The record is a 127-nucleotide RNA sequence from Hemibagrus wyckioides, which matches "mir-130 microRNA precursor family" in Rfam.
[Rfam]
RNA sequence: UUCAGUCAGAGCUCCUUUCACACUGCAGGACUUUGAGUCACCGAUGCCCGUGAAAUAUUUGGCAUGCUAAAUAUCUGGACCUGUCAGCGACUCGAAAUCGUGCAGUGUGAAAGGAGCUCUGACUGAA
Number, nucleotide and partner (000 for none) at each position: 001u000002u127003c000004a124005g123006u122007c121008a120009g119010a000011g117012c116013u115014c114015c113016u112017u111018u110019c000020a000021c107022a106023c105024u104025g103026c102027a101028g000029g099030a000031c000032u000033u000034u000035g000036a000037g000038u000039c000040a000041c000042c000043g000044a000045u000046g000047c000048c000049c000050g000051u000052g000053a000054a000055a000056u000057a000058u000059u000060u000061g000062g000063c000064a000065u000066g000067c000068u000069a000070a000071a000072u000073a000074u000075c000076u000077g000078g000079a000080c000081c000082u000083g000084u000085c000086a000087g000088c000089g000090a000091c000092u000093c000094g000095a000096a000097a000098u000099c029100g000101u027102g026103c025104a024105g023106u022107g021108u000109g000110a018111a017112a016113g015114g014115a013116g012117c011118u000119c009120u008121g007122a006123c005124u004125g000126a000127a002

For this family Rfam cites "Identification of tissue-specific microRNAs from mouse" (Lagos-Quintana et al., Curr Biol, 2002). Rfam 15.1 lists 2,580 matches to the family in 658 species. A search with the family's covariance model found it, with a score of 42 bits.